Group II catalytic intron D1-D4-5: a 195-nucleotide sequence from Niallia taxi.

RNA sequence: CUGAAGGGUUAUAUCGAAGAAUCAAAUGAUGAGGUAACGCUCGGAAGGGUUCUCUCUUAGUCGAAUAGCACUUGAUUUAGUAAGAAUGAUAGUGUUAUAAGCUCGGUGAAAAGGCGUGAGAAAUUACCGUAUCAGUUCGGCUGACGAAAGCCUACUCGAUGGAGUGGUGUAAUUCAUGGUGCUUGAGUUGAAUGA
Numbered sequence: 001c002u003g004a005a006g007g008g009u010u011a012u013a014u015c016g017a018a019g020a021a022u023c024a025a026a027u028g029a030u031g032a033g034g035u036a037a038c039g040c041u042c043g044g045a046a047g048g049g050u051u052c053u054c055u056c057u058u059a060g061u062c063g064a065a066u067a068g069c070a071c072u073u074g075a076u077u078u079a080g081u082a083a084g085a086a087u088g089a090u091a092g093u094g095u096u097a098u099a100a101g102c103u104c105g106g107u108g109a110a111a112a113g114g115c116g117u118g119a120g121a122a123a124u125u126a127c128c129g130u131a132u133c134a135g136u137u138c139g140g141c142u143g144a145c146g147a148a149a150g151c152c153u154a155c156u157c158g159a160u161g162g163a164g165u166g167g168u169g170u171a172a173u174u175c176a177u178g179g180u181g182c183u184u185g186a187g188u189u190g191a192a193u194g195a
Stems, first nucleotide, its partner, number of pairs: 018053006033041002054187003061106004065098008075090003113183005122174006128146003134142002150168003154165004
Gene Ontology term of the family: Group II intron splicing.
From the family's description: Group II introns are found in rRNA, tRNA and mRNA of organelles in fungi, plants and protists, and also in mRNA in bacteria.
Rfam 15.1 lists 720 matches to the family in 418 species.